The family of this 89-nucleotide sequence from Aceticella autotrophica is "pan motif". The family's RNA type in Rfam is cis-regulatory element. The source organism's lineage runs through Bacteria, Bacillota, Thermoanaerobacterales, Thermoanaerobacteraceae and Aceticella.

[Rfam]
RNA sequence: UUGAUGGUAUCUCAACGUGGAACCAUACUAAAAUUUUUUUAAUUUAAUACAGUAUUACUCUGCCAGGAUCAUUUGACCGGGACGGAAGA
Numbered sequence: 001u002u003g004a005u006g007g008u009a010u011c012u013c014a015a016c017g018u019g020g021a022a023c024c025a026u027a028c029u030a031a032a033a034u035u036u037u038u039u040u041a042a043u044u045u046a047a048u049a050c051a052g053u054a055u056u057a058c059u060c061u062g063c064c065a066g067g068a069u070c071a072u073u074u075g076a077c078c079g080g081g082a083c084g085g086a087a088g089a
Stems, first nucleotide, its partner, number of pairs: 001030001003028001004026005010021002060085003063081002066078002069076002